[Rfam]
RNA sequence: ACAACAUUAAGAGCAUCGGUCUAUCGAGCAAUAUCACUCGCUCUGUGGAAGAUCUUCCCAUUGUUGU
Numbered sequence: 001a002c003a004a005c006a007u008u009a010a011g012a013g014c015a016u017c018g019g020u021c022u023a024u025c026g027a028g029c030a031a032u033a034u035c036a037c038u039c040g041c042u043c044u045g046u047g048g049a050a051g052a053u054c055u056u057c058c059c060a061u062u063g064u065u066g067u
Base pairs, nucleotide, nucleotide: 004064005063006062011057012056015053016052017051020049021048022047023046024045026043027042028041029040
A member of the RNA family "mir-2774 microRNA precursor family" from Bombyx mori, 67 nucleotides long. A reference for the family is Liu et al. (2010), "MicroRNAs of Bombyx mori identified by Solexa sequencing", BMC Genomics.